Overview: Rfam assigns this 71-nucleotide sequence from Histidinibacterium aquaticum to the family "Glycine riboswitch aptamer". A search with the family's covariance model found it, with a score of 51 bits. Taxonomically the source falls in Histidinibacterium (Bacteria, Pseudomonadati, Pseudomonadota, Rhodobacterales). The base pairs follow the family's consensus structure. Rfam describes the family as follows. This family represents the bacterial glycine riboswitch. Glycine riboswitches usually consist of two metabolite-binding aptamers domains with similar structures in tandem. The aptamers cooperatively bind glycine to regulate the expression of downstream genes. In Bacillus subtilis, this riboswitch is found upstream of the gcvT operon which controls glycine degradation.
RNA sequence: CCGGGAGAGCGCGGAGACCCCGCCGCCGAAGGAGAAACCGCCCCGGUAAACUCUCAGGCACAAGGGACCGG
Numbered sequence: 001c002c003g004g005g006a007g008a009g010c011g012c013g014g015a016g017a018c019c020c021c022g023c024c025g026c027c028g029a030a031g032g033a034g035a036a037a038c039c040g041c042c043c044c045g046g047u048a049a050a051c052u053c054u055c056a057g058g059c060a061c062a063a064g065g066g067a068c069c070g071g
Base pairs, nucleotide, nucleotide: 001071002070003069004068011023012022013021014020025059026058027057028055029054032053033052034051038046039045
Dot-bracket structure: ((((......((((.....)))).(((((..(((...((.....))....))))).)))........))))